[Rfam]
RNA sequence: AAAAUGACUAUGAACGGACGAAGUAGUUGCUUAUUCUUAUUCCUAGAGAGCUAGUGGUUGGUGGAAACUAGUAGAGAUAAGUAGACGAAUUACAUCCCGGAGUCACGCUGCACAGGAUAAUGGUGCGGCCGGUGUUGAGCCGUUAUUUUUUGAAGUAGGAUUUUUUCCUAAAAGUAGGGUGGUACCACGUUAAUUAAUACGUCCCUUCG
Numbered sequence: 001a002a003a004a005u006g007a008c009u010a011u012g013a014a015c016g017g018a019c020g021a022a023g024u025a026g027u028u029g030c031u032u033a034u035u036c037u038u039a040u041u042c043c044u045a046g047a048g049a050g051c052u053a054g055u056g057g058u059u060g061g062u063g064g065a066a067a068c069u070a071g072u073a074g075a076g077a078u079a080a081g082u083a084g085a086c087g088a089a090u091u092a093c094a095u096c097c098c099g100g101a102g103u104c105a106c107g108c109u110g111c112a113c114a115g116g117a118u119a120a121u122g123g124u125g126c127g128g129c130c131g132g133u134g135u136u137g138a139g140c141c142g143u144u145a146u147u148u149u150u151u152g153a154a155g156u157a158g159g160a161u162u163u164u165u166u167c168c169u170a171a172a173a174g175u176a177g178g179g180u181g182g183u184a185c186c187a188c189g190u191u192a193a194u195u196a197a198u199a200c201g202u203c204c205c206u207u208c209g
Base pairs, nucleotide, nucleotide: 007103008102016097017096018095026086027085028084031081040074041073050072051071052070053069054068055067108128109127110126111125112124113123130142131141132140156170157169158168159167160166176206177205178204179203187202188201189200190199
This 209-nucleotide RNA sequence from Listeria innocua belongs to the Rfam family "T-box leader". The family's consensus secondary structure is taken from published work. Taxonomically the source falls in Listeria (Bacteria, Bacillati, Bacillota, Caryophanales). The literature on the family includes a 1994 paper in J Bacteriol by Grundy et al., "Interaction between the acceptor end of tRNA and the T box stimulates antitermination in the Bacillus subtilis tyrS gene: a new role for the discriminator base".